[Rfam]
RNA: U4 spliceosomal RNA
RNA sequence: AGCUUUGCGCCAAGCAGGCAGUGUCAUAGCCAAUGAGGUUUUUUUUUCUACGAGGCGUGACUAUUGCUAGUUGAAAAACUUUUUCCCAAUUACACCGCCCUUGUCGACGUGAAACACCGUCGGUGAGGGCAAUUUGGGGAAAUCCUUCGGGC
Numbered sequence: 001a002g003c004u005u006u007g008c009g010c011c012a013a014g015c016a017g018g019c020a021g022u023g024u025c026a027u028a029g030c031c032a033a034u035g036a037g038g039u040u041u042u043u044u045u046u047u048c049u050a051c052g053a054g055g056c057g058u059g060a061c062u063a064u065u066g067c068u069a070g071u072u073g074a075a076a077a078a079c080u081u082u083u084u085c086c087c088a089a090u091u092a093c094a095c096c097g098c099c100c101u102u103g104u105c106g107a108c109g110u111g112a113a114a115c116a117c118c119g120u121c122g123g124u125g126a127g128g129g130c131a132a133u134u135u136g137g138g139g140a141a142a143u144c145c146u147u148c149g150g151g152c
Stems, first nucleotide, its partner, number of pairs: 023061005029056003037051001097130013